The family of this 78-nucleotide RNA from Loxodonta africana is "mir-147 microRNA precursor family".

RNA sequence: UCUGGAUUUAGUGGAAACACUUCCGCACAAACUAGAUUAUGGAUACCAGUGUGUGGAAAUGCUUCUGCAACAUUUUUA
Numbered sequence: 001u002c003u004g005g006a007u008u009u010a011g012u013g014g015a016a017a018c019a020c021u022u023c024c025g026c027a028c029a030a031a032c033u034a035g036a037u038u039a040u041g042g043a044u045a046c047c048a049g050u051g052u053g054u055g056g057a058a059a060u061g062c063u064u065c066u067g068c069a070a071c072a073u074u075u076u077u078a
Base pairs, nucleotide, nucleotide: 001078004075005074006073007072009070011068012067013066014065015064016063018061019060021058022057023056024055025054026053027052028051029050032049033048

For this family Rfam cites "Hidden layers of human small RNAs" (Kawaji et al., BMC Genomics, 2008). It scores 83 bits against the family's covariance model. The family's consensus secondary structure was predicted with RNAalifold.